This 80-nucleotide RNA from Folsomia candida belongs to the Rfam family "mir-263 microRNA precursor family".
The family has 52 seed sequences and 368 matches in Rfam 15.1.
The literature on the family includes a 2009 paper in BMC Genomics by Li et al., "Direct sequencing and expression analysis of a large number of miRNAs in Aedes aegypti and a multi-species survey of novel mosquito miRNAs".
The family's consensus secondary structure was predicted with RNAalifold.
Clan: mir-182 clan.
Taxonomically the source falls in Folsomia (Eukaryota, Metazoa, Arthropoda, Isotomidae).
Gene Ontology terms of the family: RISC complex and miRNA-mediated post-transcriptional gene silencing.
[Rfam]
RNA sequence: CAUUUUCUCCGAAUGGCACUUGAAGAAUUCACGGGUGGUUUUGCAAUCCCGUGAUUCUCACGUGCCGUACGGAGCGAGAG
Number, nucleotide and partner (000 for none) at each position: 001c000002a000003u078004u077005u076006u000007c074008u073009c072010c071011g000012a000013a068014u067015g066016g065017c064018a063019c000020u000021u060022g059023a000024a000025g056026a055027a000028u000029u054030c053031a052032c051033g050034g049035g000036u000037g000038g000039u000040u000041u000042u000043g000044c000045a000046a000047u000048c000049c034050c033051g032052u031053g030054a029055u026056u025057c000058u000059c022060a021061c000062g000063u018064g017065c016066c015067g014068u013069a000070c000071g010072g009073a008074g007075c000076g005077a004078g003079a000080g000